[Rfam]
RNA: Small nucleolar RNA SNORD111
Organism: Zapornia atra
RNA sequence: GAGCCUGAAAUGAUGUUACGAAUUCAUGUCUCUUCUCUGAGGUCUGUUGUGGAGACAUCUGUGUGCGUUUCUGAUCAGGCUU
Numbered sequence: 001g002a003g004c005c006u007g008a009a010a011u012g013a014u015g016u017u018a019c020g021a022a023u024u025c026a027u028g029u030c031u032c033u034u035c036u037c038u039g040a041g042g043u044c045u046g047u048u049g050u051g052g053a054g055a056c057a058u059c060u061g062u063g064u065g066c067g068u069u070u071c072u073g074a075u076c077a078g079g080c081u082u
Base pairs, nucleotide, nucleotide: 001082002081003080004079005078